A member of the RNA family "Bacteroidales-1 6S-Bacteroidales RNA suggested" from Prevotella sp. KH2C16, 187 nucleotides long. The match comes from Rfam's covariance-model search (124 bits). Pairs were carried over by alignment from the consensus structure, which is taken from published work.
RNA sequence: GGUUGCACAGAUUCGAUCGGGAUAGUCAUCAAAAUUAAAAUAAGAACCGAGACAGCUUCUUUUGCUAAUGGCGGGCCAUAUAAAGUUCCUCGGAACCUAAGCCGCAAGGCCGGUGGAUUACAAAGGCGGAGAGCUCUCAAAUCAUAUAUACUCGGACUUAUCAUCACAUCAUCGUGCAGCCCCUUUU
Numbered sequence: 001g002g003u004u005g006c007a008c009a010g011a012u013u014c015g016a017u018c019g020g021g022a023u024a025g026u027c028a029u030c031a032a033a034a035u036u037a038a039a040a041u042a043a044g045a046a047c048c049g050a051g052a053c054a055g056c057u058u059c060u061u062u063u064g065c066u067a068a069u070g071g072c073g074g075g076c077c078a079u080a081u082a083a084a085g086u087u088c089c090u091c092g093g094a095a096c097c098u099a100a101g102c103c104g105c106a107a108g109g110c111c112g113g114u115g116g117a118u119u120a121c122a123a124a125g126g127c128g129g130a131g132a133g134c135u136c137u138c139a140a141a142u143c144a145u146a147u148a149u150a151c152u153c154g155g156a157c158u159u160a161u162c163a164u165c166a167c168a169u170c171a172u173c174g175u176g177c178a179g180c181c182c183c184u185u186u187u
Stems, first nucleotide, its partner, number of pairs: 055134003059131001061130006069122002076116004086095003101110003